RNA sequence: GUCGUUCAUCUUUUCUACCAAACCUUUUGAGAAAAGACGGAAGUAAGGAAAUCCUGAAGGAACGCACC
Number, nucleotide and partner (000 for none) at each position: 001g000002u000003c064004g063005u062006u061007c060008a000009u037010c036011u035012u034013u033014u032015c031016u030017a000018c000019c000020a000021a000022a000023c000024c000025u000026u000027u000028u000029g000030a016031g015032a014033a013034a012035a011036g010037a009038c000039g000040g065041a000042a000043g000044u000045a000046a055047g054048g053049a000050a000051a000052u000053c048054c047055u046056g000057a000058a000059g000060g007061a006062a005063c004064g003065c040066a000067c000068c000
Shown here is a 68-nucleotide RNA sequence from Pleurocapsales cyanobacterium LEGE 10410, a member of the family "Glutamine riboswitch aptamer (glnA leader)".